[Rfam]
RNA sequence: AACGAAAUGAUUAACCUUUUCCCCCAGAUUAUCGACUAUGAUUACACUGUGCACAUUUAAAUCUCUUCUCGGAGGGUUCAAGCCAUUGGAUCUGAUCCUU
Number, nucleotide and partner (000 for none) at each position: 001a100002a099003c000004g097005a096006a000007a000008u000009g000010a000011u000012u000013a000014a000015c000016c000017u000018u000019u000020u000021c000022c000023c000024c000025c000026a000027g000028a000029u000030u000031a000032u000033c000034g000035a000036c000037u000038a000039u000040g000041a000042u000043u000044a000045c000046a000047c000048u000049g000050u000051g000052c000053a000054c000055a000056u000057u000058u000059a000060a000061a000062u000063c000064u000065c000066u000067u000068c000069u000070c000071g000072g000073a000074g000075g000076g000077u000078u000079c000080a000081a000082g000083c000084c000085a000086u000087u000088g000089g000090a000091u000092c000093u000094g000095a000096u005097c004098c000099u002100u001
RNA: Small nucleolar RNA Z103